glmS glucosamine-6-phosphate activated ribozyme aptamer: a 170-nucleotide RNA sequence from Geosporobacter ferrireducens. It is annotated as a riboswitch. From the family's description: This entry contains a glucosamine-6-phosphate activated ribozyme that is found in the mRNA for GlmS. GlmS is an enzyme that uses fructose-6-phosphate and glutamine to generate glucosamine-6-phosphate. The ribozyme catalyses self cleavage of the glmS mRNA that is thought to regulate GlmS activity.
RNA sequence: AAAACACAAAAAGCGCCAGGACUUGAAUCGGAUCGGAAAAUUCAGGAUUCAAGUUGACGAGGAACAGGGUUUAUCGAAAAUUCGGCGGAUGCCCUGCGGACUUCACCAACGUUAAACGUCCUACAAAGACUCCGAGUGAUUGGAGGGACAAAUGGGACUGGGUGAAAAAA
Numbered sequence: 001a002a003a004a005c006a007c008a009a010a011a012a013g014c015g016c017c018a019g020g021a022c023u024u025g026a027a028u029c030g031g032a033u034c035g036g037a038a039a040a041u042u043c044a045g046g047a048u049u050c051a052a053g054u055u056g057a058c059g060a061g062g063a064a065c066a067g068g069g070u071u072u073a074u075c076g077a078a079a080a081u082u083c084g085g086c087g088g089a090u091g092c093c094c095u096g097c098g099g100a101c102u103u104c105a106c107c108a109a110c111g112u113u114a115a116a117c118g119u120c121c122u123a124c125a126a127a128g129a130c131u132c133c134g135a136g137u138g139a140u141u142g143g144a145g146g147g148a149c150a151a152a153u154g155g156g157a158c159u160g161g162g163u164g165a166a167a168a169a170a
Base pairs, nucleotide, nucleotide: 020055021054022053023052024051025050026049027048029046065096066095067094068093069092074085075084076083077082097111098110099106118158119157120156121155122154130145131144132143133142134141135140

About this RNA: Lineage of the source: Bacteria > Bacillati > Bacillota > Clostridia > Geosporobacter.